[Rfam]
RNA: ASpks TB sRNA
Organism: Streptomyces fradiae
RNA sequence: CUUCAGCGAGCCGAGCCACAGCGGGUGGUCGCCGGAACGGUUCCGUCCGGAGGCGGCGAGCAGCGCCCCGGCCUC
Numbered sequence: 001c002u003u004c005a006g007c008g009a010g011c012c013g014a015g016c017c018a019c020a021g022c023g024g025g026u027g028g029u030c031g032c033c034g035g036a037a038c039g040g041u042u043c044c045g046u047c048c049g050g051a052g053g054c055g056g057c058g059a060g061c062a063g064c065g066c067c068c069c070g071g072c073c074u075c
Stems, first nucleotide, its partner, number of pairs: 014026001016024002032071003038065002043060001047056003